[Rfam]
A member of the RNA family "Mammalian CPEB3 ribozyme" from Alligator mississippiensis, 80 nucleotides long.
RNA sequence: GGAGGUCACAAGCUCGUGGCCGUAGCAGAAGCGCUCGUGGCGCGGCCGGGUCAGACCCCAACGAAUCUGCAAAUUCAGCU
Number, nucleotide and partner (000 for none) at each position: 001g000002g000003a000004g000005g000006u000007c000008a000009c000010a000011a000012g000013c048014u000015c000016g000017u000018g047019g046020c045021c044022g000023u000024a080025g079026c078027a000028g076029a075030a074031g043032c042033g041034c000035u000036c000037g000038u000039g000040g000041c033042g032043c031044g021045g020046c019047c018048g013049g000050g000051u000052c069053a068054g067055a066056c000057c000058c063059c000060a000061a000062c000063g058064a000065a000066u055067c054068u053069g052070c000071a000072a000073a000074u030075u029076c028077a000078g026079c025080u024
The match comes from Rfam's covariance-model search (35 bits). NCBI's taxonomy places the organism under Eukaryota, Craniata, Gnathostomata, Crocodylia, Alligator. Rfam describes the family as follows. The mammalian CPEB3 ribozyme is a self cleaving RNA located in the second intron of the CPEB3 gene which belongs to a family of genes regulating messenger RNA polyadenylation.